[Rfam]
Record summary:
Shown here is a 278-nucleotide sequence from Coprinopsis cinerea, a member of the family "Group I catalytic intron". It scores 70 bits against the family's covariance model. Taxonomically the source falls in Coprinopsis cinerea (Eukaryota, Opisthokonta, Dikarya, Agaricineae). About the family: Group I catalytic introns are large self-splicing ribozymes. They catalyse their own excision from mRNA, tRNA and rRNA precursors in a wide range of organisms. The core secondary structure consists of 9 paired regions (P1-P9). These fold to essentially two domains - the P4-P6 domain (formed from the stacking of P5, P4, P6 and P6a helices) and the P3-P9 domain (formed from the P8, P3, P7 and P9 helices).
RNA sequence: UAUUUAAAUUUAUAAUAUCGGGGAUUUAAGAUAGUAAUAUCUUAUUAGAAAUUGGCUAUAUGCUGGAACCUCCUUAGAGCUUUAAGUACUUAAAUUUAAAAAGAAAGUUAAAAUCUUAAAGAUUGGACAAUCAGCAGGGAAGUUAUAUAAAAUAGGUUAUAGCGACUGUUUUAAAUUUAUAUAAUCCCUCAACGACUACACGCCAACAUCCAGUGCUUCAUAAAUUGUAUUCUUUAUGCUGGAUGAAGAUAUAGUCUAAACUUAAUUGAAAGAUUAAG
Number, nucleotide and partner (000 for none) at each position: 001u000002a000003u000004u000005u028006a027007a026008a025009u024010u023011u022012a000013u020014a000015a000016u000017a000018u000019c000020g013021g000022g011023g010024a009025u008026u007027u006028a005029a000030g000031a000032u000033a000034g000035u000036a000037a000038u000039a000040u000041c000042u000043u000044a000045u000046u000047a000048g000049a000050a000051a000052u206053u205054g204055g203056c202057u000058a000059u000060a000061u136062g135063c134064u133065g132066g131067a000068a000069c000070c000071u127072c126073c125074u000075u000076a000077g000078a000079g000080c000081u000082u000083u000084a000085a000086g000087u000088a000089c000090u000091u000092a000093a000094a000095u000096u000097u000098a000099a000100a000101a000102a000103g000104a000105a000106a000107g000108u000109u000110a000111a000112a000113a000114u000115c000116u000117u000118a000119a000120a000121g000122a000123u000124u000125g073126g072127a071128c000129a000130a000131u066132c065133a064134g063135c062136a061137g188138g187139g000140a000141a000142g000143u000144u181145a180146u000147a000148u000149a178150a177151a176152a000153u174154a000155g000156g000157u000158u000159a000160u000161a000162g000163c000164g000165a000166c000167u000168g000169u000170u000171u000172u000173a000174a153175a000176u151177u150178u149179a000180u145181a144182u000183a000184a000185u000186c000187c138188c137189u000190c000191a000192a257193c000194g256195a255196c254197u253198a252199c000200a000201c000202g056203c055204c054205a053206a052207c000208a000209u243210c242211c241212a240213g239214u238215g237216c000217u000218u000219c000220a000221u000222a000223a000224a000225u000226u000227g000228u000229a000230u000231u000232c000233u000234u000235u000236a000237u215238g214239c213240u212241g211242g210243a209244u000245g000246a000247a000248g000249a000250u000251a000252u198253a197254g196255u195256c194257u192258a000259a000260a000261c000262u000263u276264a275265a274266u273267u272268g000269a000270a000271a000272g267273a266274u265275u264276a263277a000278g000